A member of the RNA family "TPP riboswitch aptamer (THI element)" from Malonomonas rubra, 102 nucleotides long. The family's consensus secondary structure is taken from published work.
[Rfam]
RNA sequence: AUAUAGCCCUAGGGGAGUCGUCGUUACUGAGAGCUCGAAUUCGAGCGACCCUUGGAACCUGAUCCGGCUAAUACCGGCGUAGGGAAGUGGCUGAAUACACCG
Number, nucleotide and partner (000 for none) at each position: 001a000002u000003a000004u000005a000006g000007c089008c000009c087010u086011a052012g051013g050014g049015g000016a000017g027018u026019c000020g024021u000022c000023g000024u020025u000026a018027c017028u000029g000030a000031g000032a000033g000034c045035u044036c043037g042038a000039a000040u000041u000042c037043g036044a035045g034046c000047g000048a000049c014050c013051c012052u011053u000054g000055g000056a000057a000058c083059c082060u081061g080062a000063u000064c077065c076066g075067g074068c000069u000070a000071a000072u000073a000074c067075c066076g065077g064078c000079g000080u061081a060082g059083g058084g000085a000086a010087g009088u000089g007090g000091c000092u000093g000094a000095a000096u000097a000098c000099a000100c000101c000102g000